[Rfam]
Rfam assigns this 68-nucleotide sequence from Aspergillus sclerotialis to the family "bZIP non canonical Hac1/Xbp1 intron". For this family Rfam cites "Conserved RNA structures in the non-canonical Hac1/Xbp1 intron" (Hooks and Griffiths-Jones, RNA Biol, 2011). About the family: bZIP intron RNA is a non-canonical intron that was first reported in HAC1 gene in yeast and XBP1 gene in Metazoa. The family has 112 seed sequences and 1,325 matches in Rfam 15.1. It scores 58 bits against the family's covariance model. Pairs were carried over by alignment from the consensus structure, which was predicted with RNAfold.
RNA sequence: GAGUCCUCUGACGUGACACAACAUCCUGCAGCGAUGUUGUGUGACCUGCAGUGUCCGUCACAGGGCUC
Numbered sequence: 001g002a003g004u005c006c007u008c009u010g011a012c013g014u015g016a017c018a019c020a021a022c023a024u025c026c027u028g029c030a031g032c033g034a035u036g037u038u039g040u041g042u043g044a045c046c047u048g049c050a051g052u053g054u055c056c057g058u059c060a061c062a063g064g065g066c067u068c
Stems, first nucleotide, its partner, number of pairs: 001068007009060005020038006043055003
Dot-bracket structure: (((((((.(((((......((((((.......))))))....(((.......)))))))).)))))))